The record is a 166-nucleotide sequence from Phoenix dactylifera, which matches "small nucleolar RNA snoR143" in Rfam. Rfam 15.1 lists 660 matches to the family in 212 species.
[Rfam]
RNA sequence: GUGCAUUUGUUGGAUGACCAAGGCCGCUCAUGUUCUGGUUGUGGGGUCUGAGCAACAAUGCAUAGAGUAAAAGCCGUUCAAUCGGCAGCAGCCAGACAACUGCAGGGAUGGUUCCACAGAUGACUGAUAAAAAUUUCUGUUUGUCUACUGAUACCAUCUCAUAUGU
Numbered sequence: 001g002u003g004c005a006u007u008u009g010u011u012g013g014a015u016g017a018c019c020a021a022g023g024c025c026g027c028u029c030a031u032g033u034u035c036u037g038g039u040u041g042u043g044g045g046g047u048c049u050g051a052g053c054a055a056c057a058a059u060g061c062a063u064a065g066a067g068u069a070a071a072a073g074c075c076g077u078u079c080a081a082u083c084g085g086c087a088g089c090a091g092c093c094a095g096a097c098a099a100c101u102g103c104a105g106g107g108a109u110g111g112u113u114c115c116a117c118a119g120a121u122g123a124c125u126g127a128u129a130a131a132a133a134u135u136u137c138u139g140u141u142u143g144u145c146u147a148c149u150g151a152u153a154c155c156a157u158c159u160c161a162u163a164u165g166u
Stems, first nucleotide, its partner, number of pairs: 002062005008054003011050005018043001022040005105160008123142001124139001126137001